Rfam assigns this 74-nucleotide RNA sequence from Sphingorhabdus pulchriflava to the family "tRNA". The family's consensus secondary structure is taken from published work. The source organism's lineage runs through Bacteria, Pseudomonadota, Alphaproteobacteria, Sphingorhabdaceae and Sphingorhabdus.
RNA sequence: GCACCCAUAGCUCAGCUGGAUAGAGCACCAGACUACGAAUCUGGGGGUCGGACGUUCGAAUCGUUCUGGGUGCG
Numbered sequence: 001g002c003a004c005c006c007a008u009a010g011c012u013c014a015g016c017u018g019g020a021u022a023g024a025g026c027a028c029c030a031g032a033c034u035a036c037g038a039a040u041c042u043g044g045g046g047g048u049c050g051g052a053c054g055u056u057c058g059a060a061u062c063g064u065u066c067u068g069g070g071u072g073c074g
Stems, first nucleotide, its partner, number of pairs: 001073007010026004028044005050066005
Annotation: Rfam classes the family as a transfer RNA.